[Rfam]
RNA sequence: AUACGGCGCUUUUAACGACACACACGCUUCGUCACAUGCGGUGGGGUCCCGAUAGGGUACCGCAUGGGAAGUGUGGAGGCUUAAC
Numbered sequence: 001a002u003a004c005g006g007c008g009c010u011u012u013u014a015a016c017g018a019c020a021c022a023c024a025c026g027c028u029u030c031g032u033c034a035c036a037u038g039c040g041g042u043g044g045g046g047u048c049c050c051g052a053u054a055g056g057g058u059a060c061c062g063c064a065u066g067g068g069a070a071g072u073g074u075g076g077a078g079g080c081u082u083a084a085c
Base pairs, nucleotide, nucleotide: 023075024074025073026072027071028070029069030068035066036065037064038063039062040061041060042059043058048057049056050055
RNA: t44 RNA
Organism: Legionella clemsonensis